This 86-nucleotide sequence from Struthio camelus belongs to the Rfam family "Small nucleolar RNA SNORD103/SNORD85". The base pairs follow the family's consensus structure.

RNA sequence: UCUGGCAAUGAUGACACACUUGCCCUCACUGAGAACACUGUUCGAUAAUGAGAGCCUCACCGUGUACUCAGAUGAGCUGAGCCAGG
Numbered sequence: 001u002c003u004g005g006c007a008a009u010g011a012u013g014a015c016a017c018a019c020u021u022g023c024c025c026u027c028a029c030u031g032a033g034a035a036c037a038c039u040g041u042u043c044g045a046u047a048a049u050g051a052g053a054g055c056c057u058c059a060c061c062g063u064g065u066a067c068u069c070a071g072a073u074g075a076g077c078u079g080a081g082c083c084a085g086g
Stems, first nucleotide, its partner, number of pairs: 001086006

The family has 41 seed sequences and 1,349 matches in Rfam 15.1. A reference for the family is Vitali et al. (2003), "Identification of 13 novel human modification guide RNAs", Nucleic Acids Res.